A member of the RNA family "U5 spliceosomal RNA" from Strongylocentrotus purpuratus, 119 nucleotides long.
Gene Ontology terms of the family: U5 snRNP and spliceosomal tri-snRNP complex assembly.
[Rfam]
RNA sequence: UUACUCUGGUUUUUCUGCAAUACGCAUAAAUCUUUCGCCUUUUACUAAAGAUUUCCGUGCAGAGGAACACAUUGAUGAGUCUAUAAAGAUUUUUCUUCGGCUUGCCUACACGGCAAGCC
Numbered sequence: 001u002u003a004c005u006c007u008g009g010u011u012u013u014u015c016u017g018c019a020a021u022a023c024g025c026a027u028a029a030a031u032c033u034u035u036c037g038c039c040u041u042u043u044a045c046u047a048a049a050g051a052u053u054u055c056c057g058u059g060c061a062g063a064g065g066a067a068c069a070c071a072u073u074g075a076u077g078a079g080u081c082u083a084u085a086a087a088g089a090u091u092u093u094u095c096u097u098c099g100g101c102u103u104g105c106c107u108a109c110a111c112g113g114c115a116a117g118c119c
Base pairs, nucleotide, nucleotide: 003080004079005078006077009068010067011066012065013064014063015062016061017060018059019058028054029053030052031051032050033049034048035047100118101117102116103115104114105113
The sequence is in the family's curated seed alignment. By type it is a spliceosomal small nuclear RNA. About the family: U5 RNA is a component of both types of known spliceosome. The precise function of this molecule is unknown, though it is known that the 5' loop is required for splice site selection and p220 binding, and that both the 3' stem-loop and the Sm site are important for Sm protein binding and cap methylation.